[Rfam]
RNA sequence: AUGAUUAUGCUAUACUAAUCAUUGUAGAAAGUUUUGUGGUGGUCGGCUAAUCCCAAAGAAAUGGGGUGAUGCCGAUGUUGAUUUUAGGUUUUACUCCUGGAAAGGAAUAAACGUGACUGUUUUUGAAGCAUUGAUGUUUGCGAUAGCUUUCGCAACAUUAGUACUGAAAAUCAGUAAUAAAAA
Numbered sequence: 001a002u003g004a005u006u007a008u009g010c011u012a013u014a015c016u017a018a019u020c021a022u023u024g025u026a027g028a029a030a031g032u033u034u035u036g037u038g039g040u041g042g043u044c045g046g047c048u049a050a051u052c053c054c055a056a057a058g059a060a061a062u063g064g065g066g067u068g069a070u071g072c073c074g075a076u077g078u079u080g081a082u083u084u085u086a087g088g089u090u091u092u093a094c095u096c097c098u099g100g101a102a103a104g105g106a107a108u109a110a111a112c113g114u115g116a117c118u119g120u121u122u123u124u125g126a127a128g129c130a131u132u133g134a135u136g137u138u139u140g141c142g143a144u145a146g147c148u149u150u151c152g153c154a155a156c157a158u159u160a161g162u163a164c165u166g167a168a169a170a171u172c173a174g175u176a177a178u179a180a181a182a183a
Stems, first nucleotide, its partner, number of pairs: 042156002046153002063097007071089002115135001117133001119131002122128001161178002
Description
Listeria sRNA rli28: a 183-nucleotide RNA. It scores 110 bits against the family's covariance model. The family has 21 seed sequences and 345 matches in Rfam 15.1. For this family Rfam cites "Muscarinic cholinergic control of vasopressin secretion from the acute hypothalamoneurohypophysial explant" (Michels et al., Neuroendocrinology, 1991).